Spi-1 (PU.1) 5' UTR regulatory element: a 165-nucleotide sequence from Myotis brandtii. NCBI's taxonomy places the organism under Eukaryota, Bilateria, Teleostomi, Vespertilionidae, Myotis.
RNA sequence: CUCACGCAGGGCGCCUGUAGCUCAGGGGCAGGCCCGAGCCCUGCGCCCGCCGAGUCAGUCCAGCCCCUGACGGGGCUUCCCAUCCCAAGGGGCUCCGCACUGGCCCCCACCGAGGCAGGGGACCGGACCGGACCGGAGCUCGGCUGGAUGUUACAGGCGUGCAAA
Numbered sequence: 001c002u003c004a005c006g007c008a009g010g011g012c013g014c015c016u017g018u019a020g021c022u023c024a025g026g027g028g029c030a031g032g033c034c035c036g037a038g039c040c041c042u043g044c045g046c047c048c049g050c051c052g053a054g055u056c057a058g059u060c061c062a063g064c065c066c067c068u069g070a071c072g073g074g075g076c077u078u079c080c081c082a083u084c085c086c087a088a089g090g091g092g093c094u095c096c097g098c099a100c101u102g103g104c105c106c107c108c109a110c111c112g113a114g115g116c117a118g119g120g121g122a123c124c125g126g127a128c129c130g131g132a133c134c135g136g137a138g139c140u141c142g143g144c145u146g147g148a149u150g151u152u153a154c155a156g157g158c159g160u161g162c163a164a165a
Base pairs, nucleotide, nucleotide: 008042009041010040011039012038014036017033018032020029021028022027043160044159045158046157047156049154058149059148060147061146062145065092066091067090068089072086073085074084075083094137095136096135097134101126102124103123105121106120107119108118138144139143
Overview
The literature on the family includes a 1997 paper in Nucleic Acids Res by Hensold et al., "The conserved 5'-untranslated leader of Spi-1 (PU.1) mRNA is highly structured and potently inhibits translation in vitro but not in vivo". Rfam's curators write: Spi-1 regulates myeloid gene expression during haemopoietic development. This family represents a regulatory element found in the 5' UTR of Spi-1 mRNA which is able to inhibit the translation Spi-1 transcripts by 8-fold. Mutations in this regulatory region of the 5' UTR can lead to overexpression of Spi-1 which has been linked to erythroleukemic transformation. The base pairs follow the family's consensus structure, which is taken from published work. The match comes from Rfam's covariance-model search (134 bits).